This 598-nucleotide part of an RNA from uncultured eukaryote HF0200_37F04 belongs to the Rfam family "Eukaryotic large subunit ribosomal RNA". The sequence is in the family's curated seed alignment. The base pairs follow the family's consensus structure, which is taken from published work. NCBI's taxonomy places the organism under Eukaryota, named eukaryotic clones.
[Rfam]
RNA sequence: CGGGGAAAGAAGACCCUGUUGAGCUUGACUCUAGUUCGACUUUGUGAAUUGACAUAGGGGAUGUAGCAUAAGUGGGAGCUUCCGCAACCUUGAAAUACCACUACCCUUAUCGUCGAUUUACUUAUUGCGUUAAACUGUGAUUCCGCUUUUAUGUGGUUUUUAGAAUUAAGGCGGCAUCUUGAUGCUGCUGACUUGUGCGCAAGACAUAGUCAGGUGGGGAGUUUGGCUGGGGCGGCACAUCUGUUAAACGAUAACGCAGGUGUCCCAAGGUAAGCUCAAUGAGAACAGAAAUCUCAUGUAGACCAAAAGGGGAAAAGCUUGCUUGAUUUUGAUUUUCAGUACGAAUACAAACUUAGAAAUAAUGGCCUAUCGAUCCUUUAGGGUUGCGAAGAUUGCAGCUAGAGGUGUCAGAAAAGUUACCACAGGGAUAACUGGCUUGUGGCAGCCAAGCGUUCAUAGCGACGUUGCUUUUUGAUCCUUCGAUGUCGGCUCUUCCUAUCAUUGGCUUGCAGCAGAGCCAAAGUGUCGGAUUGUUCACCCGCCAAUAGGGAACGUGAGCUGGGUUUAGACCGUCGUGAGACAGGUUAGUUUUACCCUA
Numbered sequence: 001c002g003g004g005g006a007a008a009g010a011a012g013a014c015c016c017u018g019u020u021g022a023g024c025u026u027g028a029c030u031c032u033a034g035u036u037c038g039a040c041u042u043u044g045u046g047a048a049u050u051g052a053c054a055u056a057g058g059g060g061a062u063g064u065a066g067c068a069u070a071a072g073u074g075g076g077a078g079c080u081u082c083c084g085c086a087a088c089c090u091u092g093a094a095a096u097a098c099c100a101c102u103a104c105c106c107u108u109a110u111c112g113u114c115g116a117u118u119u120a121c122u123u124a125u126u127g128c129g130u131u132a133a134a135c136u137g138u139g140a141u142u143c144c145g146c147u148u149u150u151a152u153g154u155g156g157u158u159u160u161u162a163g164a165a166u167u168a169a170g171g172c173g174g175c176a177u178c179u180u181g182a183u184g185c186u187g188c189u190g191a192c193u194u195g196u197g198c199g200c201a202a203g204a205c206a207u208a209g210u211c212a213g214g215u216g217g218g219g220a221g222u223u224u225g226g227c228u229g230g231g232g233c234g235g236c237a238c239a240u241c242u243g244u245u246a247a248a249c250g251a252u253a254a255c256g257c258a259g260g261u262g263u264c265c266c267a268a269g270g271u272a273a274g275c276u277c278a279a280u281g282a283g284a285a286c287a288g289a290a291a292u293c294u295c296a297u298g299u300a301g302a303c304c305a306a307a308a309g310g311g312g313a314a315a316a317g318c319u320u321g322c323u324u325g326a327u328u329u330u331g332a333u334u335u336u337c338a339g340u341a342c343g344a345a346u347a348c349a350a351a352c353u354u355a356g357a358a359a360u361a362a363u364g365g366c367c368u369a370u371c372g373a374u375c376c377u378u379u380a381g382g383g384u385u386g387c388g389a390a391g392a393u394u395g396c397a398g399c400u401a402g403a404g405g406u407g408u409c410a411g412a413a414a415a416g417u418u419a420c421c422a423c424a425g426g427g428a429u430a431a432c433u434g435g436c437u438u439g440u441g442g443c444a445g446c447c448a449a450g451c452g453u454u455c456a457u458a459g460c461g462a463c464g465u466u467g468c469u470u471u472u473u474g475a476u477c478c479u480u481c482g483a484u485g486u487c488g489g490c491u492c493u494u495c496c497u498a499u500c501a502u503u504g505g506c507u508u509g510c511a512g513c514a515g516a517g518c519c520a521a522a523g524u525g526u527c528g529g530a531u532u533g534u535u536c537a538c539c540c541g542c543c544a545a546u547a548g549g550g551a552a553c554g555u556g557a558g559c560u561g562g563g564u565u566u567a568g569a570c571c572g573u574c575g576u577g578a579g580a581c582a583g584g585u586u587a588g589u590u591u592u593a594c595c596c597u598a
Stems, first nucleotide, its partner, number of pairs: 003597003007592002015426004020422002022418005028222004035214002038211004044121010054110007071102005078085002125202005135195001137193001143156004170189005225238001226236003239261006264365002270322006276302002279297006303312002327351003332346004353362003376404006384398004435476001437474001439473001441469006450460002487562001488560004492554001493551005500525002503520006527541003531537001568586004572581003